The record is a 133-nucleotide RNA sequence, which matches "Caenorhabditis snoRNA ceN92" in Rfam.
For this family Rfam cites "Systematic identification of non-coding RNA 2,2,7-trimethylguanosine cap structures in Caenorhabditis elegans" (Jia et al., BMC Mol Biol, 2007).
Its family is annotated with nucleolus and RNA processing in the Gene Ontology.
Rfam classes the family as an H/ACA-box small nucleolar RNA.

[Rfam]
RNA sequence: UUCCACUUAUUAAAAUAAUUUUUCGCUGAUUUCUGAAAGUCAUGUGAACCGAAUAAGCUGGUAGAUAAGUUGUUUCUCUGCCACACGUGUACUAGCUUCAAGCGGUAUGGGUUCCAAUGAUUUACGAACAUUU
Number, nucleotide and partner (000 for none) at each position: 001u000002u000003c061004c060005a059006c000007u057008u056009a000010u000011u000012a000013a000014a000015a000016u000017a000018a000019u000020u000021u000022u048023u047024c046025g045026c044027u042028g041029a040030u000031u038032u037033c000034u000035g000036a000037a032038a031039g000040u029041c028042a027043u000044g026045u025046g024047a023048a022049c000050c000051g000052a000053a000054u000055a000056a008057g007058c000059u005060g004061g003062u000063a000064g000065a000066u000067a000068a000069g000070u000071u000072g000073u000074u000075u000076c000077u120078c119079u000080g000081c000082c000083a000084c000085a112086c111087g000088u109089g108090u107091a106092c105093u000094a000095g103096c102097u000098u000099c000100a000101a000102g096103c095104g000105g092106u091107a090108u089109g088110g000111g086112u085113u000114c000115c000116a000117a000118u000119g078120a077121u000122u000123u000124a000125c000126g000127a000128a000129c000130a000131u000132u000133u000